[Rfam]
RNA: DUF3800-VI RNA
RNA sequence: UGGUUGGGAGGGCCGCAGGUGCGGUUCGUUGAAGUUAUGCUUCACCUGGCCU
Number, nucleotide and partner (000 for none) at each position: 001u000002g051003g050004u049005u048006g047007g046008g045009a000010g027011g026012g025013c024014c023015g022016c021017a000018g000019g000020u000021g016022c015023g014024g013025u012026u011027c010028g000029u000030u044031g043032a042033a041034g040035u000036u000037a000038u000039g000040c034041u033042u032043c031044a030045c008046c007047u006048g005049g004050c003051c002052u000